The record is a 97-nucleotide sequence from Pasteurellaceae bacterium RH1A, which matches "TPP riboswitch aptamer (THI element)" in Rfam. NCBI's taxonomy places the organism under Bacteria, Pseudomonadati, Gammaproteobacteria, Pasteurellales, Pasteurellaceae. A search with the family's covariance model found it, with a score of 67 bits. Pairs were carried over by alignment from the consensus structure, which is taken from published work.
RNA sequence: ACCCUCUUGUCGGAGUGCCGUAAGGCUGAGAUCGCAUAGCGAGAUCCGUGGAACCUGUUAGGUUAGAACCUGCGUAGGGAACAAGUUUUGCAAAAAA
Numbered sequence: 001a002c003c004c005u006c007u008u009g010u011c012g013g014a015g016u017g018c019c020g021u022a023a024g025g026c027u028g029a030g031a032u033c034g035c036a037u038a039g040c041g042a043g044a045u046c047c048g049u050g051g052a053a054c055c056u057g058u059u060a061g062g063u064u065a066g067a068a069c070c071u072g073c074g075u076a077g078g079g080a081a082c083a084a085g086u087u088u089u090g091c092a093a094a095a096a097a
Stems, first nucleotide, its partner, number of pairs: 006085005011048004016042001017026003033041003054078004059072004